[Rfam]
A member of the RNA family "Class I RNA from Dictyostelium" from Tieghemostelium lacteum, 100 nucleotides long. The sequence is in the family's curated seed alignment. The base pairs follow the family's consensus structure, which is taken from published work. It is annotated as a non-coding RNA gene. The organism belongs to Tieghemostelium, within Eukaryota. For this family Rfam cites "Novel non-coding RNAs in Dictyostelium discoideum and their expression during development" (Aspegren et al., Nucleic Acids Res, 2004).
RNA sequence: GACUUUCUUACAGCAAUUUAGUAAUUAAAUCAAAACAUAUUCUGUCAUUGUUUUACUUAGGUAAUCUAAUAUACAAAUUUGGAUAACUCAUAAAAGUCUG
Numbered sequence: 001g002a003c004u005u006u007c008u009u010a011c012a013g014c015a016a017u018u019u020a021g022u023a024a025u026u027a028a029a030u031c032a033a034a035a036c037a038u039a040u041u042c043u044g045u046c047a048u049u050g051u052u053u054u055a056c057u058u059a060g061g062u063a064a065u066c067u068a069a070u071a072u073a074c075a076a077a078u079u080u081g082g083a084u085a086a087c088u089c090a091u092a093a094a095a096g097u098c099u100g
Stems, first nucleotide, its partner, number of pairs: 001098006